[Rfam]
RNA sequence: AUGACAGAAGAGAGUGAGCACACGCAGGCAUUUCUAUAAUCAGUUUAUAUGUUUGUUUAGCCGUGUGCUCACUUCUCUUUCUGUCAU
Numbered sequence: 001a002u003g004a005c006a007g008a009a010g011a012g013a014g015u016g017a018g019c020a021c022a023c024g025c026a027g028g029c030a031u032u033u034c035u036a037u038a039a040u041c042a043g044u045u046u047a048u049a050u051g052u053u054u055g056u057u058u059a060g061c062c063g064u065g066u067g068c069u070c071a072c073u074u075c076u077c078u079u080u081c082u083g084u085c086a087u
Stems, first nucleotide, its partner, number of pairs: 001087009010077003013073009023063002
RNA: mir-156 microRNA precursor family